[Rfam]
RNA sequence: CGACCCCGCGCGGGAGAGUUCCGGGAGCGGGCCGGCGCCGCGGCCGCGGCACCGGUGAGCGACCCGGGCGCCGAAGGAGCAACCUCCCCGGAAUCUCUCAGGCUCACGUACCGCGCGGGUGAG
Dot-bracket structure: .....((((((((......((((((.....................................)))))).(((((..(((...((.....))...))))).))).......)))))))).....
Rfam assigns this 123-nucleotide RNA from Sphaerisporangium album to the family "Glycine riboswitch aptamer". Rfam links the family to the GO term glycine biosynthetic process. This family represents the bacterial glycine riboswitch. Glycine riboswitches usually consist of two metabolite-binding aptamers domains with similar structures in tandem. The aptamers cooperatively bind glycine to regulate the expression of downstream genes. In Bacillus subtilis, this riboswitch is found upstream of the gcvT operon which controls glycine degradation.